[Rfam]
RNA sequence: UCCAAUGCUCACCCAGUACUCAGUGUAAGGUCUGUGUGAUCAAAGUAGAGCUACAUCUGAUUACUGGGUCAGUAAUGACGUUA
Numbered sequence: 001u002c003c004a005a006u007g008c009u010c011a012c013c014c015a016g017u018a019c020u021c022a023g024u025g026u027a028a029g030g031u032c033u034g035u036g037u038g039a040u041c042a043a044a045g046u047a048g049a050g051c052u053a054c055a056u057c058u059g060a061u062u063a064c065u066g067g068g069u070c071a072g073u074a075a076u077g078a079c080g081u082u083a
Stems, first nucleotide, its partner, number of pairs: 013067006020060003023056005032050002035047001
RNA: mir-221 microRNA precursor family